Source information
Shown here is a 110-nucleotide sequence from Neorhodopirellula pilleata, a member of the family "SAM-I/IV (S-adenosyl methionine) riboswitch aptamer". It scores 60 bits against the family's covariance model. Clan: SAM clan.
RNA sequence: AUUUUUCAUGAAGAGAAGGGCUGACGCCCUCGCCAACCUGUCCAGUCCGGGCAAGGUGGAUUCCGCACUCUCGCGGACAUGUGGCCAUCUUGGCAACCAUUCGGACCAAG
Numbered sequence: 001a002u003u004u005u006u007c008a009u010g011a012a013g014a015g016a017a018g019g020g021c022u023g024a025c026g027c028c029c030u031c032g033c034c035a036a037c038c039u040g041u042c043c044a045g046u047c048c049g050g051g052c053a054a055g056g057u058g059g060a061u062u063c064c065g066c067a068c069u070c071u072c073g074c075g076g077a078c079a080u081g082u083g084g085c086c087a088u089c090u091u092g093g094c095a096a097c098c099a100u101u102c103g104g105a106c107c108a109a110g
Stems, first nucleotide, its partner, number of pairs: 007081004015031001017030005033059002037056003040052003046104002084094004
NCBI's taxonomy places the organism under Bacteria, Pseudomonadati, Planctomycetia, Pirellulales, Neorhodopirellula. For this family Rfam cites "The aptamer core of SAM-IV riboswitches mimics the ligand-binding site of SAM-I riboswitches" (Weinberg et al., RNA, 2008). Rfam 15.1 lists 567 matches to the family in 508 species.